[Rfam]
The family of this 62-nucleotide RNA from Cercocebus atys is "U7 small nuclear RNA". Pairs were carried over by alignment from the consensus structure, which was predicted with PFOLD. The source organism's lineage runs through Eukaryota, Mammalia, Euarchontoglires, Primates and Cercocebus. A search with the family's covariance model found it, with a score of 45 bits. On this family, see Spycher et al., Nucleic Acids Res 1994: "3' end processing of mouse histone pre-mRNA: evidence for additional base-pairing between U7 snRNA and pre-mRNA". Animal histone pre-mRNAs are spliced by a different mechanism than nuclear pre-mRNAs and self-splicing introns.

Nucleotides: 062
Base pairs, nucleotide, nucleotide: 034059035058037056038055039054040053041052044049
Number, partner (000 for none) and nucleotide at each position: 001000g002000a003000a004000u005000g006000c007000u008000a009000c010000a011000g012000c013000u014000c015000u016000u017000u018000c019000a020000g021000a022000a023000u024000u025000u026000g027000c028000c029000a030000a031000g032000c033000a034059g035058g036000u037056u038055u039054u040053c041052u042000c043000a044049u045000c046000u047000u048000u049044a050000c051000u052041a053040g054039a055038a056037a057000c058035c059034c060000c061000u062000c